[Rfam]
Source information:
This 93-nucleotide RNA from Leishmania major belongs to the Rfam family "Small nucleolar RNA TBR6". About the family: TBR6 was one of seventeen snoRNAs identified in Trypanosoma brucei. Together with TBR2, TBR12 and TBR4 it is a part of snoRNA gene cluster that is tandemly repeated. On this family, see Dunbar et al., Nucleic Acids Res 2000: "The genes for small nucleolar RNAs in Trypanosoma brucei are organized in clusters and are transcribed as a polycistronic RNA". It is annotated as a C/D-box small nucleolar RNA. The family's consensus secondary structure was predicted with RNAfold.

Nucleotides: 093
Base pairs, nucleotide, nucleotide: 001062002061003060005033006032007031010028011027012026039051040049041048
Number, partner (000 for none) and nucleotide at each position: 001062c002061g003060c004000u005033g006032u007031g008000a009000u010028g011027a012026c013000u014000g015000g016000a017000u018000g019000a020000g021000u022000u023000a024000u025000u026012g027011u028010u029000u030000g031007c032006a033005c034000a035000u036000u037000u038000a039051c040049c041048g042000a043000g044000c045000c046000u047000u048041c049040g050000u051039g052000g053000c054000c055000c056000g057000u058000g059000a060003g061002c062001g063000a064000c065000c066000g067000u068000a069000u070000a071000a072000c073000u074000u075000c076000u077000a078000a079000g080000a081000a082000c083000a084000c085000c086000a087000g088000c089000u090000g091000a092000u093000u